Notes
This 146-nucleotide RNA sequence from Balaenoptera physalus belongs to the Rfam family "Small nucleolar RNA SNORA79". About the family: ACA65 (SNORA79) is a member of the H/ACA class of snoRNAs that guide the sites of modification of uridines to pseudouridines. Gene Ontology terms of the family: RNA processing and nucleolus.
[Rfam]
RNA sequence: UGAUGGCUGUUCCUCUCACUACUUUACAUCUUGGAGAGUGGGAUUUUAGUCCAUCAUAUAGCAAGCUGAUCUGUUUUCACUCAGAGCACCAUGCGGAUGGAUUGUCUGUCCAAUAGUGACUCCUGAUUUUUGCAUAUUGAACAAUU
Numbered sequence: 001u002g003a004u005g006g007c008u009g010u011u012c013c014u015c016u017c018a019c020u021a022c023u024u025u026a027c028a029u030c031u032u033g034g035a036g037a038g039u040g041g042g043a044u045u046u047u048a049g050u051c052c053a054u055c056a057u058a059u060a061g062c063a064a065g066c067u068g069a070u071c072u073g074u075u076u077u078c079a080c081u082c083a084g085a086g087c088a089c090c091a092u093g094c095g096g097a098u099g100g101a102u103u104g105u106c107u108g109u110c111c112a113a114u115a116g117u118g119a120c121u122c123c124u125g126a127u128u129u130u131u132g133c134a135u136a137u138u139g140a141a142c143a144a145u146u
Stems, first nucleotide, its partner, number of pairs: 001056006008049001014043005020037001023034001069138001072136003081126004085121002087118003095111005
Overview:
It scores 73 bits against the family's covariance model.